[Rfam]
The family of this 93-nucleotide RNA from Prunus persica is "MIR6288 microRNA precursor family". The source organism's lineage runs through Eukaryota, Streptophyta, eudicotyledons, Rosales and Prunus.
RNA sequence: UCAAAACCAGUCACUUGUGAUUUUCUAAUUGGUUCUUAGUGUGUUAAAAAAGUUAUGAGAAUCAAUUAGAAAAUAACAAGUGGCUAAUUUUGG
Numbered sequence: 001u002c003a004a005a006a007c008c009a010g011u012c013a014c015u016u017g018u019g020a021u022u023u024u025c026u027a028a029u030u031g032g033u034u035c036u037u038a039g040u041g042u043g044u045u046a047a048a049a050a051a052g053u054u055a056u057g058a059g060a061a062u063c064a065a066u067u068a069g070a071a072a073a074u075a076a077c078a079a080g081u082g083g084c085u086a087a088u089u090u091u092g093g
Stems, first nucleotide, its partner, number of pairs: 002092005009085010020074019
Rfam 15.1 lists 293 matches to the family in 9 species.